[Rfam]
RNA: FMN riboswitch aptamer (RFN element)
RNA sequence: GUCUAUCUUCGGGGCAGGGUGAAAAUCCCGACCGGCGGUAAUGAAUGAGUAUAUGAAUAUGUGAGUUCUAAGCCCGCGAGCCGUUAAGGCAGGAUUUGGUGCGAUUCCAAAGCCGACAGUACAGUCUGGAUGGGAGAAGAUGGAG
Numbered sequence: 001g002u003c004u005a006u007c008u009u010c011g012g013g014g015c016a017g018g019g020u021g022a023a024a025a026u027c028c029c030g031a032c033c034g035g036c037g038g039u040a041a042u043g044a045a046u047g048a049g050u051a052u053a054u055g056a057a058u059a060u061g062u063g064a065g066u067u068c069u070a071a072g073c074c075c076g077c078g079a080g081c082c083g084u085u086a087a088g089g090c091a092g093g094a095u096u097u098g099g100u101g102c103g104a105u106u107c108c109a110a111a112g113c114c115g116a117c118a119g120u121a122c123a124g125u126c127u128g129g130a131u132g133g134g135a136g137a138a139g140a141u142g143g144a145g
Base pairs, nucleotide, nucleotide: 003143004142005141006140007139008138009137010136017029018028019027031125032124033115034114035077036076037075038074072113073112082089095111096110097109098108099107117128118127119126